[Rfam]
RNA sequence: GUUCAACUUCAGGGCGGGGUGAAAGUCCCCACCGGUGGUAGUGCGAUCGGGUAGGUGCCCAAUUCGCAGAGCCCACGAGCGCCUGUUUUGUGUGAUGCAAAGCAGGGUCAGCAGAUCAGGUGCAGUGAUUCAUUCACUCAUUCCUGAGCCGACGGUGAUAGUCCGGAUGAAAGAAGUUGAUC
Numbered sequence: 001g002u003u004c005a006a007c008u009u010c011a012g013g014g015c016g017g018g019g020u021g022a023a024a025g026u027c028c029c030c031a032c033c034g035g036u037g038g039u040a041g042u043g044c045g046a047u048c049g050g051g052u053a054g055g056u057g058c059c060c061a062a063u064u065c066g067c068a069g070a071g072c073c074c075a076c077g078a079g080c081g082c083c084u085g086u087u088u089u090g091u092g093u094g095a096u097g098c099a100a101a102g103c104a105g106g107g108u109c110a111g112c113a114g115a116u117c118a119g120g121u122g123c124a125g126u127g128a129u130u131c132a133u134u135c136a137c138u139c140a141u142u143c144c145u146g147a148g149c150c151g152a153c154g155g156u157g158a159u160a161g162u163c164c165g166g167a168u169g170a171a172a173g174a175a176g177u178u179g180a181u182c
Stems, first nucleotide, its partner, number of pairs: 003180008017029003031162002033151002035076004071149002079112002116147005153165003